[Rfam]
RNA sequence: CGGGCCAUGCAGCCGAAUCCCGCCCGGGGCGGGAGCGGGGGAACCACCACGUCGAGCGGGAGCUUCGCCUCCCCCACGGCAGGGGCGCAUCGCGGCAACGCGUAGGGCACCUUUCGGCCCGAGCCCGUCAGCUAACCUCGCAGGCUUCGAAGGGGAGACCU
Numbered sequence: 001c002g003g004g005c006c007a008u009g010c011a012g013c014c015g016a017a018u019c020c021c022g023c024c025c026g027g028g029g030c031g032g033g034a035g036c037g038g039g040g041g042a043a044c045c046a047c048c049a050c051g052u053c054g055a056g057c058g059g060g061a062g063c064u065u066c067g068c069c070u071c072c073c074c075c076a077c078g079g080c081a082g083g084g085g086c087g088c089a090u091c092g093c094g095g096c097a098a099c100g101c102g103u104a105g106g107g108c109a110c111c112u113u114u115c116g117g118c119c120c121g122a123g124c125c126c127g128u129c130a131g132c133u134a135a136c137c138u139c140g141c142a143g144g145c146u147u148c149g150a151a152g153g154g155g156a157g158a159c160c161u
Stems, first nucleotide, its partner, number of pairs: 011146004018034005035141006045082001083126003091102004105120004
A member of the RNA family "c-di-AMP riboswitch aptamer (ydaO/yuaA leader)" from Fundidesulfovibrio magnetotacticus, 161 nucleotides long. NCBI's taxonomy places the organism under Bacteria, Pseudomonadati, Thermodesulfobacteriota, Desulfovibrionaceae, Fundidesulfovibrio. The match comes from Rfam's covariance-model search (74 bits).